Notes: mir-184 microRNA precursor family: an 86-nucleotide sequence from Araneus ventricosus. Gene Ontology terms of the family: RISC complex and gene silencing by miRNA. The family has 66 seed sequences and 948 matches in Rfam 15.1. The organism belongs to Araneus, within Eukaryota. The match comes from Rfam's covariance-model search (66 bits). The literature on the family includes a 2005 paper in Genes Dev by Chen et al., "The developmental miRNA profiles of zebrafish as determined by small RNA cloning".
RNA sequence: GUCUCCUCGCUUCCUUAUCAUUCUCGUGUCCAGGCUGCUGCAGGUUGUAAGAUCUGGACGGAGAACUGAUAAGGGCACGUGGCAGA
Numbered sequence: 001g002u003c004u005c006c007u008c009g010c011u012u013c014c015u016u017a018u019c020a021u022u023c024u025c026g027u028g029u030c031c032a033g034g035c036u037g038c039u040g041c042a043g044g045u046u047g048u049a050a051g052a053u054c055u056g057g058a059c060g061g062a063g064a065a066c067u068g069a070u071a072a073g074g075g076c077a078c079g080u081g082g083c084a085g086a
Stems, first nucleotide, its partner, number of pairs: 012075009021065005030057002